[Rfam]
Wolbachia sRNA 46: a 135-nucleotide RNA sequence from Saimiri boliviensis. The match comes from Rfam's covariance-model search (68 bits).
RNA sequence: GGCCCCCCUCCCAGAAAUUCUGAUUUAGUAGAUGGACGUAGGACCCAGUAAUUUGCAUUUAAAACAAGUUCUUGUUUUAAAUGCAAAUUACUGGGUCCUACGUCCAUCUACUAAAUCAGAAUUUCUCUGGAAAUC
Numbered sequence: 001g002g003c004c005c006c007c008c009u010c011c012c013a014g015a016a017a018u019u020c021u022g023a024u025u026u027a028g029u030a031g032a033u034g035g036a037c038g039u040a041g042g043a044c045c046c047a048g049u050a051a052u053u054u055g056c057a058u059u060u061a062a063a064a065c066a067a068g069u070u071c072u073u074g075u076u077u078u079a080a081a082u083g084c085a086a087a088u089u090a091c092u093g094g095g096u097c098c099u100a101c102g103u104c105c106a107u108c109u110a111c112u113a114a115a116u117c118a119g120a121a122u123u124u125c126u127c128u129g130g131a132a133a134u135c
Stems, first nucleotide, its partner, number of pairs: 011130005018121031
The organism belongs to Saimiri boliviensis, within Eukaryota.